[Rfam]
The family of this 83-nucleotide RNA sequence from Ornithorhynchus anatinus is "mir-130 microRNA precursor family". For this family Rfam cites "Embryonic stem cell-specific MicroRNAs" (Houbaviy et al., Dev Cell, 2003).
RNA sequence: CCCAAGCCCGUGUUCUUUCCACUUAGCCACGCUGCUUCAAGUAGGCAGCAGCGUGGUUCAGUGGAAAGAGCAUGGGCUUUGGA
Numbered sequence: 001c002c003c004a005a006g007c008c009c010g011u012g013u014u015c016u017u018u019c020c021a022c023u024u025a026g027c028c029a030c031g032c033u034g035c036u037u038c039a040a041g042u043a044g045g046c047a048g049c050a051g052c053g054u055g056g057u058u059c060a061g062u063g064g065a066a067a068g069a070g071c072a073u074g075g076g077c078u079u080u081g082g083a
Base pairs, nucleotide, nucleotide: 002082003081005078006077007076008075009074010073012071013070014069015068016067017066018065019064022061023060025058026057027056028055029054030053

The base pairs follow the family's consensus structure, which was predicted with PFOLD.